[Rfam]
RNA sequence: AGAUCGAUGAUGACCCCAAAAAUGCAUUCCUUGGAAAGCUGAACAAAAUGAGUGAGAACUCAUACUGUCGUCAUUCCCAUCAAAAACUGAGGUCC
Dot-bracket structure: .((((...................(((((.(((..........)))...)))))....................................)))).
Numbered sequence: 001a002g003a004u005c006g007a008u009g010a011u012g013a014c015c016c017c018a019a020a021a022a023u024g025c026a027u028u029c030c031u032u033g034g035a036a037a038g039c040u041g042a043a044c045a046a047a048a049u050g051a052g053u054g055a056g057a058a059c060u061c062a063u064a065c066u067g068u069c070g071u072c073a074u075u076c077c078c079a080u081c082a083a084a085a086a087c088u089g090a091g092g093u094c095c
Stems, first nucleotide, its partner, number of pairs: 002094004025054005031046003
Description
The record is a 95-nucleotide RNA from Myotis lucifugus, which matches "Small nucleolar RNA SNORD116" in Rfam. It is one of the family's seed sequences. The family's consensus secondary structure was predicted with PFOLD. The family's RNA type in Rfam is C/D-box small nucleolar RNA. Gene Ontology terms of the family: nucleolus and RNA processing. On this family, see Cavaille et al., Proc Natl Acad Sci U S A 2000: "Identification of brain-specific and imprinted small nucleolar RNA genes exhibiting an unusual genomic organization". NCBI's taxonomy places the organism under Eukaryota, Amniota, Yangochiroptera, Vespertilionidae, Myotis.